RNA sequence: GGGAAACAGGGGCCAGGCUUGGGAGAAGAGCCGUCCCAAGCCCAAGACCAAGUAGGCUCC
Numbered sequence: 001g002g003g004a005a006a007c008a009g010g011g012g013c014c015a016g017g018c019u020u021g022g023g024a025g026a027a028g029a030g031c032c033g034u035c036c037c038a039a040g041c042c043c044a045a046g047a048c049c050a051a052g053u054a055g056g057c058u059c060c
Base pairs, nucleotide, nucleotide: 016042017041018040019039020038021037022036023035024034028059029058030057031056032055
Dot-bracket structure: ...............(((((((((...[[[[[.)))))))))............]]]]].

The family of this 60-nucleotide RNA from Nannospalax galili is "Ma3 gene ribosomal frameshift signal".
The family's RNA type in Rfam is frameshift element.
The source organism's lineage runs through Eukaryota, Dipnotetrapodomorpha, Tetrapoda, Spalacinae and Nannospalax.
For this family Rfam cites "A functional -1 ribosomal frameshift signal in the human paraneoplastic Ma3 gene" (Wills et al., J Biol Chem, 2006).